The family of this 66-nucleotide RNA sequence from Pseudogracilibacillus auburnensis is "Bacillaceae-1 RNA". It is annotated as a small RNA. NCBI's taxonomy places the organism under Bacteria, Bacillati, Bacillota, Bacillaceae, Pseudogracilibacillus. Pairs were carried over by alignment from the consensus structure, which is taken from published work.
RNA sequence: UUCUCCGCGAGGCAGGUUAAGUACGCGACGUCCUGUCGCAACACCUGCACUAGCACGUCCUGUGCG
Numbered sequence: 001u002u003c004u005c006c007g008c009g010a011g012g013c014a015g016g017u018u019a020a021g022u023a024c025g026c027g028a029c030g031u032c033c034u035g036u037c038g039c040a041a042c043a044c045c046u047g048c049a050c051u052a053g054c055a056c057g058u059c060c061u062g063u064g065c066g
Stems, first nucleotide, its partner, number of pairs: 012048006025039005053065004
Dot-bracket structure: ...........((((((.......(((((.....)))))...))))))....((((.....)))).